[Rfam]
RNA sequence: UAAAGGCCAUAUAACUGACGGAAGUGGGUUAACCACAUGGAGUAUGGCCGGAUUGAAGCCGACCGUCUGGGCAAACAUA
Numbered sequence: 001u002a003a004a005g006g007c008c009a010u011a012u013a014a015c016u017g018a019c020g021g022a023a024g025u026g027g028g029u030u031a032a033c034c035a036c037a038u039g040g041a042g043u044a045u046g047g048c049c050g051g052a053u054u055g056a057a058g059c060c061g062a063c064c065g066u067c068u069g070g071g072c073a074a075a076c077a078u079a
Base pairs, nucleotide, nucleotide: 005049006048007047008046009045010044011043012042015039017067018066019065020064021063024036025035026034027033058072059071060070
RNA: ZMP/ZTP riboswitch aptamer (pfl RNA motif)
Organism: Phascolarctobacterium sp. CAG:266